Background: A member of the RNA family "Small nucleolar RNA SNORD113/SNORD114 family" from Muntiacus reevesi, 69 nucleotides long. The family's consensus secondary structure is taken from published work. It scores 43 bits against the family's covariance model. Rfam classes the family as a C/D-box small nucleolar RNA. About the family: The imprinted human domain at 14q32 contains two clusters of tandemly repeated small nucleolar RNAs named 14q(I) and 14q(II) snoRNAs. These two clusters are named SNORD113 and SNORD114 respectively in the HGNC approved gene symbol nomenclature. The snoRNAs found in both clusters are clearly related and are represented here by a single family. These snoRNAs are intron encoded and are processed from the tissue-specific non-coding human MEG8 RNA, which lies downstream of the imprinted genes DLK1 and GTL2. snoRNAs 14q(I) and 14q(II) differ from previously identified C/D box snoRNAs in their expression profiles and lack of complementarity to rRNA and snRNA. Homologues of these snoRNAs are found in the imprinted non-coding mouse transcript Rian, and in the rat non-coding Bsr (brain-specific repetitive) RNA. Taxonomically the source falls in Muntiacus (Eukaryota, Vertebrata, Sarcopterygii, Laurasiatheria).

RNA sequence: UGGGCCAGUGAUGAUCAUGAAAAGAAGAGUCCUGAAGAGUGAAAACAUAUCUGAAACUCUGAGGUCCAA
Numbered sequence: 001u002g003g004g005c006c007a008g009u010g011a012u013g014a015u016c017a018u019g020a021a022a023a024g025a026a027g028a029g030u031c032c033u034g035a036a037g038a039g040u041g042a043a044a045a046c047a048u049a050u051c052u053g054a055a056a057c058u059c060u061g062a063g064g065u066c067c068a069a
Base pairs, nucleotide, nucleotide: 002067003066004065005064006063